[Rfam]
RNA sequence: UUGUCCUGGCCUAUCCUUUCUCUGCUCCCCUGUGCUCAGUUGUAACAGGGGAGUCUGGCAGGACACACAGCAAUCUCCCUCUCACUGUAGGAGGGCUGUCCUGAAUAUAGGACUGGCUCUUAAAGGCAUGAGAAGACAGU
Numbered sequence: 001u002u003g004u005c006c007u008g009g010c011c012u013a014u015c016c017u018u019u020c021u022c023u024g025c026u027c028c029c030c031u032g033u034g035c036u037c038a039g040u041u042g043u044a045a046c047a048g049g050g051g052a053g054u055c056u057g058g059c060a061g062g063a064c065a066c067a068c069a070g071c072a073a074u075c076u077c078c079c080u081c082u083c084a085c086u087g088u089a090g091g092a093g094g095g096c097u098g099u100c101c102u103g104a105a106u107a108u109a110g111g112a113c114u115g116g117c118u119c120u121u122a123a124a125g126g127c128a129u130g131a132g133a134a135g136a137c138a139g140u
Stems, first nucleotide, its partner, number of pairs: 002065007010058002024054003028050006078135001080133004086126001088124001091121007098113006
This 140-nucleotide RNA from Phyllostomus discolor belongs to the Rfam family "Small Cajal body specific RNA 11". Gene Ontology terms of the family: nucleolus, RNA processing and Cajal body. The organism belongs to Phyllostomus, within Eukaryota. The family's consensus secondary structure was predicted with RNAalifold. About the family: scaRNAs are a specific class of small nuclear RNAs which localise to the Cajal bodies and guide the modification of RNA polymerase II transcribed spliceosomal RNAs U1, U2, U4, U5 and U12. ACA57 belongs to the H/ACA box class of guide RNAs as it has the predicted hairpin-hinge-hairpin-tail structure, conserved H/ACA-box motifs and is found associated with GAR1. ACA57 is predicted to guide the pseudouridylation of the U5 spliceosomal RNA at position U43.